[Rfam]
RNA: 6S / SsrS RNA
Organism: Mobilitalea sibirica
RNA sequence: AUAGUCCUGAGAUGUGCGACACUCCUGUUAUUUUGAACCUACAUGAUGUAAUACGGGAUUCCUACAUCUAUAAGUGGAUGUCAGGCCGCCGUUUGCAGCGGAAGGCAGAAGCUUAUGUGCGGUUACCCACCUAGCUUAGCUAGGAGUCAAAAUACAGGAAACGGCAUUUCGGGUAUAAU
Numbered sequence: 001a002u003a004g005u006c007c008u009g010a011g012a013u014g015u016g017c018g019a020c021a022c023u024c025c026u027g028u029u030a031u032u033u034u035g036a037a038c039c040u041a042c043a044u045g046a047u048g049u050a051a052u053a054c055g056g057g058a059u060u061c062c063u064a065c066a067u068c069u070a071u072a073a074g075u076g077g078a079u080g081u082c083a084g085g086c087c088g089c090c091g092u093u094u095g096c097a098g099c100g101g102a103a104g105g106c107a108g109a110a111g112c113u114u115a116u117g118u119g120c121g122g123u124u125a126c127c128c129a130c131c132u133a134g135c136u137u138a139g140c141u142a143g144g145a146g147u148c149a150a151a152a153u154a155c156a157g158g159a160a161a162c163g164g165c166a167u168u169u170c171g172g173g174u175a176u177a178a179u
Base pairs, nucleotide, nucleotide: 002177003176006173007172008171009170010169011168012167013166014165015164017163018162031152032151034149035148036147038144039143055128056127057126061122062121066118069117070116071115072114073113074112075111081105082104086101087100088099089098